This 93-nucleotide RNA from Saccharibacillus sacchari belongs to the Rfam family "c-di-GMP-I riboswitch aptamer".
[Rfam]
RNA sequence: UCCUGCGCAGGGCAAAUCCGCCGAAAGGCGAGAGACGCAAAGCCGCGGGCCUAAAACCGUCCUCCGGGCGGUCAUGGCAGCCGGGUUGCCGAU
Number, nucleotide and partner (000 for none) at each position: 001u000002c000003c000004u000005g000006c000007g000008c000009a000010g000011g000012g038013c037014a000015a000016a000017u033018c032019c030020g029021c028022c027023g000024a000025a000026a000027g022028g021029c020030g019031a000032g018033a017034g000035a000036c000037g013038c012039a000040a000041a087042g086043c085044c084045g000046c083047g082048g081049g078050c077051c076052u000053a000054a000055a000056a072057c071058c070059g069060u068061c067062c066063u000064c000065c000066g062067g061068g060069c059070g058071g057072u056073c000074a000075u000076g051077g050078c049079a000080g000081c048082c047083g046084g044085g043086u042087u041088g000089c000090c000091g000092a000093u000
The source organism's lineage runs through Bacteria, Bacillati, Caryophanales, Saccharibacillus and Saccharibacillus sacchari. GEMM was predicted in a large-scale screen for bacterial structured RNA regulatory elements. Genes associated with GEMM are involved in a diverse array of functions, including chemotaxis regulation, signal transduction, secretion and chitin. A search with the family's covariance model found it, with a score of 72 bits.